[Rfam]
RNA sequence: CAAAAAUGCUAGGGGUGCUUGGAAAACCAAGCUGAGAUCACACCCUUAACACCUGACUCUGGAUAAUACCAGCGAAGGGAAGCCGUUUAUUGAGGAA
Numbered sequence: 001c002a003a004a005a006a007u008g009c010u011a012g013g014g015g016u017g018c019u020u021g022g023a024a025a026a027c028c029a030a031g032c033u034g035a036g037a038u039c040a041c042a043c044c045c046u047u048a049a050c051a052c053c054u055g056a057c058u059c060u061g062g063a064u065a066a067u068a069c070c071a072g073c074g075a076a077g078g079g080a081a082g083c084c085g086u087u088u089a090u091u092g093a094g095g096a097a
Base pairs, nucleotide, nucleotide: 008083009082010081011046012045013044014043016040017032018031019030020029021028052078053077054076059072060071061070062069
This 97-nucleotide RNA from Anabaena sp. FACHB-1237 belongs to the Rfam family "TPP riboswitch aptamer (THI element)".
NCBI's taxonomy places the organism under Bacteria, Bacillati, Cyanophyceae, Nostocaceae, Anabaena.
A search with the family's covariance model found it, with a score of 64 bits.
The base pairs follow the family's consensus structure, which is taken from published work.